[Rfam]
RNA sequence: AUAGUUGCUGUAAACAUCCUACACUCAGCUGUAAUCAGACAGGGCUGGGAGGAGGGUGUUUACUUUGACUGG
Numbered sequence: 001a002u003a004g005u006u007g008c009u010g011u012a013a014a015c016a017u018c019c020u021a022c023a024c025u026c027a028g029c030u031g032u033a034a035u036c037a038g039a040c041a042g043g044g045c046u047g048g049g050a051g052g053a054g055g056g057u058g059u060u061u062a063c064u065u066u067g068a069c070u071g072g
Base pairs, nucleotide, nucleotide: 002071003070004069005068006067010063011062012061013060014059015058016057017056018055019054020053022051024049025048026047027046028045029044030043

mir-30 microRNA precursor family: a 72-nucleotide sequence from Denticeps clupeoides. From the family's description: This family consists of the mammalian microRNA (miRNA) precursor mir-30a. Animal miRNAs are transcribed as ~70nt precursors and subsequently processed by the Dicer enzyme to give a ~22nt product. In this case the mature sequence comes from both the 3' (miR-30) and 5' (mir-97-6) arms of the precursor. For this family Rfam cites "microRNAs: tiny regulators with great potential" (Ambros, Cell, 2001). A search with the family's covariance model found it, with a score of 60 bits.